Rfam assigns this 133-nucleotide RNA sequence from Holothuria leucospilota to the family "Small Cajal body specific RNA 3". Rfam's curators write: scaRNAs are a specific class of small nuclear RNAs which localise to the Cajal bodies and guide the modification of RNA polymerase II transcribed spliceosomal RNAs U1, U2, U4, U5 and U12. Its Rfam clan is "SCARNA3 clan". The family has 23 seed sequences and 642 matches in Rfam 15.1. On this family, see Darzacq et al., EMBO J 2002: "Cajal body-specific small nuclear RNAs: a novel class of 2'-O-methylation and pseudouridylation guide RNAs". Pairs were carried over by alignment from the consensus structure, which was predicted with RNAalifold. The organism belongs to Holothuria, within Eukaryota.

RNA sequence: UGUGGAAGUCAAAUGAACCAGUCAGAGAGAGUUUUCUUUGUCUGGUGAAAUAUAUCUUCCUAGAGUAACAAGGGGAUCUCUGGGAUUGGUGGGUAAGACUCCCCCACCCAGUUCUCGUUCACCCCCAUACAGU
Numbered sequence: 001u002g003u004g005g006a007a008g009u010c011a012a013a014u015g016a017a018c019c020a021g022u023c024a025g026a027g028a029g030a031g032u033u034u035u036c037u038u039u040g041u042c043u044g045g046u047g048a049a050a051u052a053u054a055u056c057u058u059c060c061u062a063g064a065g066u067a068a069c070a071a072g073g074g075g076a077u078c079u080c081u082g083g084g085a086u087u088g089g090u091g092g093g094u095a096a097g098a099c100u101c102c103c104c105c106a107c108c109c110a111g112u113u114c115u116c117g118u119u120c121a122c123c124c125c126c127a128u129a130c131a132g133u
Stems, first nucleotide, its partner, number of pairs: 001054004017046005023040001028037003072126004080117001082115003086110001088108005